[Rfam]
RNA sequence: UUACCGGUGGAAGUCCGGUCCGAGGAGUUGCCAGGAGGUCCGGCAGCAGGCUGGCGGUUUCGUCUGGAAACGGGCGGGGUCGAAGCCCGGCGUCAAAGGCCCUGCUUGGGGAGCGGGCGGUCGUCACGGGU
Number, nucleotide and partner (000 for none) at each position: 001u000002u000003a000004c000005c000006g000007g000008u000009g000010g000011a000012a000013g000014u000015c000016c000017g000018g000019u000020c043021c042022g041023a000024g039025g000026a000027g000028u000029u000030g000031c000032c000033a000034g000035g000036a000037g000038g000039u024040c000041c022042g021043g020044c000045a000046g000047c000048a000049g000050g091051c090052u089053g088054g087055c082056g081057g080058u079059u078060u077061c000062g000063u000064c073065u000066g071067g000068a000069a000070a000071c066072g000073g064074g000075c000076g000077g060078g059079g058080u057081c056082g055083a000084a000085g000086c000087c054088c053089g052090g051091c050092g000093u000094c000095a000096a000097a000098g114099g000100c000101c111102c110103u109104g000105c000106u000107u000108g000109g103110g102111g101112a000113g000114c098115g000116g000117g124118c123119g000120g000121u000122c000123g118124u117125c000126a000127c000128g000129g000130g000131u000